Source information:
The record is a 158-nucleotide sequence from Glycine max, which matches "MIR4371 microRNA precursor family" in Rfam. The source organism's lineage runs through Eukaryota, Tracheophyta, rosids, Phaseoleae and Glycine subgen. Soja. Rfam 15.1 lists 321 matches to the family in 4 species.

Nucleotides: 158
Base pairs, nucleotide, nucleotide: 001156002155003154004153005152006151007150008149009148010147011146012145014143015142016141017140018139021136023134024133025132026131027130029128030127031126032125033124035122036121037120038119039118040117041116043114046111048109051106055102056101057100058099071086072085073084074083
Number, partner (000 for none) and nucleotide at each position: 001156c002155u003154g004153u005152u006151a007150a008149g009148u010147g011146a012145u013000a014143a015142c016141g017140u018139a019000a020000c021136a022000a023134a024133c025132g026131g027130a028000a029128u030127g031126u032125c033124a034000c035122a036121u037120u038119a039118u040117c041116a042000a043114g044000c045000c046111u047000u048109a049000c050000c051106a052000c053000a054000a055102a056101c057100a058099c059000c060000c061000c062000a063000u064000u065000a066000u067000c068000a069000u070000u071086u072085c073084a074083u075000c076000a077000u078000c079000u080000u081000c082000a083074a084073u085072g086071a087000u088000g089000u090000a091000g092000c093000a094000c095000u096000g097000a098000c099058g100057u101056g102055u103000c104000a105000a106051u107000a108000a109048u110000u111046g112000a113000a114043c115000a116041u117040g118039a119038u120037g121036a122035u123000a124033u125032g126031a127030c128029a129000c130027u131026u132025c133024g134023u135000c136021u137000a138000c139018u140017a141016c142015g143014u144000c145012a146011u147010c148009a149008c150007u151006u152005a153004a154003c155002a156001g157000a158000a